A member of the RNA family "Group II catalytic intron D1-D4-2" from Magnetococcus marinus, 117 nucleotides long. Rfam 15.1 lists 1,231 matches to the family in 625 species. From the family's description: Group II introns are found in rRNA, tRNA and mRNA of organelles in fungi, plants and protists, and also in mRNA in bacteria. It is one of the family's seed sequences.
RNA sequence: GAGAGUGUGGCCUCUCGGAAUCGGGUUGCAGGACCGGGUUUCAAACAGCGUCGAGCUGCUUAGGUAAAGAGCCUUGGUAGUGAGCGUCGGCGAAAAGGCGUUGUGGAAAACGUCAUG
Dot-bracket structure: (((((......)))))((((((.((((....)))).))))))...((.((((((((.(((.((((.....)))).))).)).....))))))....((((((......)))))).))